[Rfam]
RNA sequence: UUGGAUUUUGAUACAAGUUGCAUUAUCAAGUAUUUGAUGUGACUUCACUUUAAAUCCAUACAUUAAAGUCGGGCCUUCUGAAGACUUUCUUAUGUUUAGCUUUGUAAGAUAGACAGAUACGAGGCCCACAUUC
Numbered sequence: 001u002u003g004g005a006u007u008u009u010g011a012u013a014c015a016a017g018u019u020g021c022a023u024u025a026u027c028a029a030g031u032a033u034u035u036g037a038u039g040u041g042a043c044u045u046c047a048c049u050u051u052a053a054a055u056c057c058a059u060a061c062a063u064u065a066a067a068g069u070c071g072g073g074c075c076u077u078c079u080g081a082a083g084a085c086u087u088u089c090u091u092a093u094g095u096u097u098a099g100c101u102u103u104g105u106a107a108g109a110u111a112g113a114c115a116g117a118u119a120c121g122a123g124g125c126c127c128a129c130a131u132u133c
Base pairs, nucleotide, nucleotide: 002058003057004056005055006054007053015045016044017043018042022038023037024036025035071127072126073125074124075123076122077121085112086111090107091106092105093104
Background: Shown here is a 133-nucleotide RNA from Operophtera brumata, a member of the family "Small Cajal body specific RNA 8". Gene Ontology terms of the family: Cajal body, RNA processing and nucleolus. Rfam's curators write: scaRNAs are a specific class of small nuclear RNAs which localise to the Cajal bodies and guide the modification of RNA polymerase II transcribed spliceosomal RNAs U1, U2, U4, U5 and U12. Rfam 15.1 lists 955 matches to the family in 741 species. The base pairs follow the family's consensus structure, which is taken from published work. It is annotated as a small Cajal body RNA.